[Rfam]
RNA sequence: AUGUGACCUGUGGGUUUCCCUUUGUCAUCCUAUGCCUGGAGCUGUUUGUAAGGCAGGGGCCACAAAGGGAGGCUCAGCCGUCAGCUCU
Numbered sequence: 001a002u003g004u005g006a007c008c009u010g011u012g013g014g015u016u017u018c019c020c021u022u023u024g025u026c027a028u029c030c031u032a033u034g035c036c037u038g039g040a041g042c043u044g045u046u047u048g049u050a051a052g053g054c055a056g057g058g059g060c061c062a063c064a065a066a067g068g069g070a071g072g073c074u075c076a077g078c079c080g081u082c083a084g085c086u087c088u
Base pairs, nucleotide, nucleotide: 017070018069019068020067021066022065024063025062028059029058030057031056034054035053036052037051

The record is an 88-nucleotide RNA sequence from Pleuronectes platessa, which matches "mir-204 microRNA precursor family" in Rfam.
The organism belongs to Pleuronectes, within Eukaryota.